[Rfam]
RNA sequence: UGUGAGAGACCGACCAAGACAGGGAACAGGCUGAGCAUGGAUGAAUCUACCAACAGGCUUCUGUUGUCGAUCCGCCCAUGCACUGCCUCUUCCCUGGCUCUGCCUCUUCCGUUUUC
Numbered sequence: 001u002g003u004g005a006g007a008g009a010c011c012g013a014c015c016a017a018g019a020c021a022g023g024g025a026a027c028a029g030g031c032u033g034a035g036c037a038u039g040g041a042u043g044a045a046u047c048u049a050c051c052a053a054c055a056g057g058c059u060u061c062u063g064u065u066g067u068c069g070a071u072c073c074g075c076c077c078a079u080g081c082a083c084u085g086c087c088u089c090u091u092c093c094c095u096g097g098c099u100c101u102g103c104c105u106c107u108u109c110c111g112u113u114u115u116c
Stems, first nucleotide, its partner, number of pairs: 017099002020096007028088004033083001035081006045071001
Overview: Shown here is a 116-nucleotide RNA sequence from Theobroma umbraticum, a member of the family "MIR408 microRNA precursor family". Lineage of the source: Eukaryota > Spermatophyta > malvids > Malvales > Theobroma. Gene Ontology terms of the family: miRNA-mediated post-transcriptional gene silencing and RISC complex. The match comes from Rfam's covariance-model search (83 bits).